[Rfam]
RNA sequence: AUUGCAGCUUAGGGGGCCAUAGCAGAAGCAUUCACGUUGCAGCCCCUGUCAGGUAAUAGCUGGUAAUACCUGCUAAUUCUGCU
Numbered sequence: 001a002u003u004g005c006a007g008c009u010u011a012g013g014g015g016g017c018c019a020u021a022g023c024a025g026a027a028g029c030a031u032u033c034a035c036g037u038u039g040c041a042g043c044c045c046c047u048g049u050c051a052g053g054u055a056a057u058a059g060c061u062g063g064u065a066a067u068a069c070c071u072g073c074u075a076a077u078u079c080u081g082c083u
Stems, first nucleotide, its partner, number of pairs: 013046005021083007028040003050072006
Mammalian CPEB3 ribozyme: an 83-nucleotide sequence from Alligator sinensis. For this family Rfam cites "A genomewide search for ribozymes reveals an HDV-like sequence in the human CPEB3 gene" (Salehi-Ashtiani et al., Science, 2006). The organism belongs to Alligator, within Eukaryota. Pairs were carried over by alignment from the consensus structure, which is taken from published work.